[Rfam]
RNA sequence: CUCUGAAGAGUUGCCGGCGCAGACGUCGCCCGGCGCACCGAAGGAGCAAGCGACGACGCGACCUGCGGCCGGCGUGAAUCUCUCAGGUCCAGAACAGAG
Numbered sequence: 001c002u003c004u005g006a007a008g009a010g011u012u013g014c015c016g017g018c019g020c021a022g023a024c025g026u027c028g029c030c031c032g033g034c035g036c037a038c039c040g041a042a043g044g045a046g047c048a049a050g051c052g053a054c055g056a057c058g059c060g061a062c063c064u065g066c067g068g069c070c071g072g073c074g075u076g077a078a079u080c081u082c083u084c085a086g087g088u089c090c091a092g093a094a095c096a097g098a099g
Stems, first nucleotide, its partner, number of pairs: 001099005012035006037088003040084002044082003050075002
Shown here is a 99-nucleotide RNA from Janthinobacterium agaricidamnosum, a member of the family "Glycine riboswitch aptamer". A search with the family's covariance model found it, with a score of 40 bits. Gene Ontology term of the family: glycine biosynthetic process.